[Rfam]
RNA sequence: UCGAAGUUUUCAUCUACAAAGGAUUAAGAUUUUUGCUCUAGUGUAUACGAAUCGUUGAACAAGUAGACAAAUACCCCCUGUCUUGCUGUAGCAAGACAGGGGUAUUGCUACU
Numbered sequence: 001u002c003g004a005a006g007u008u009u010u011c012a013u014c015u016a017c018a019a020a021g022g023a024u025u026a027a028g029a030u031u032u033u034u035g036c037u038c039u040a041g042u043g044u045a046u047a048c049g050a051a052u053c054g055u056u057g058a059a060c061a062a063g064u065a066g067a068c069a070a071a072u073a074c075c076c077c078c079u080g081u082c083u084u085g086c087u088g089u090a091g092c093a094a095g096a097c098a099g100g101g102g103u104a105u106u107g108c109u110a111c112u
Stems, first nucleotide, its partner, number of pairs: 010023002013020001062112005070106005077100002080097005
Source information: The record is a 112-nucleotide RNA sequence from Musa balbisiana, which matches "Plastid-psbA-1 3UTR RNA" in Rfam. The family is grouped with related families in Rfam's "Plastid-psbA 3UTR RNA clan". From the family's description: Plastid psbA-1 is a non-coding RNA (ncRNA) present in plastids. Lineage of the source: Eukaryota > Embryophyta > Tracheophyta > Spermatophyta > Musa. Rfam classes the family as a cis-regulatory element. For this family Rfam cites "Retrograde signaling in plants: A critical review focusing on the GUN pathway and beyond" (Richter et al., Plant Commun, 2023). Pairs were carried over by alignment from the consensus structure, which was predicted with LocARNA.